RNA: ffh sRNA
RNA sequence: GCGCGUAGGGAUCGCCCCCCGUCAGCGCGUCGCGCCCACGGGGGCGUUAUCG
Numbered sequence: 001g002c003g004c005g006u007a008g009g010g011a012u013c014g015c016c017c018c019c020c021g022u023c024a025g026c027g028c029g030u031c032g033c034g035c036c037c038a039c040g041g042g043g044g045c046g047u048u049a050u051c052g
Stems, first nucleotide, its partner, number of pairs: 016044007025035004